[Rfam]
RNA: Streptomyces sRNA scr5239
Organism: Streptomyces sp. 8K308
RNA sequence: CUUCUGCCCUCCCCGCACAGGAGGGCAGAGCGAGGCCCGUGGCGCUCUCUGCCCUGACGGCGUCAAUGGGCCCGUAUCGCUCCGGGCUGCGGUGCCGAGAGGGUUGAGGGUCCCUCCCCGGCGC
Numbered sequence: 001c002u003u004c005u006g007c008c009c010u011c012c013c014c015g016c017a018c019a020g021g022a023g024g025g026c027a028g029a030g031c032g033a034g035g036c037c038c039g040u041g042g043c044g045c046u047c048u049c050u051g052c053c054c055u056g057a058c059g060g061c062g063u064c065a066a067u068g069g070g071c072c073c074g075u076a077u078c079g080c081u082c083c084g085g086g087c088u089g090c091g092g093u094g095c096c097g098a099g100a101g102g103g104u105u106g107a108g109g110g111u112c113c114c115u116c117c118c119c120g121g122c123g124c
Stems, first nucleotide, its partner, number of pairs: 003029004008024005032073001034072004039067001040065003044061002046057002078094004083089002097118001099116005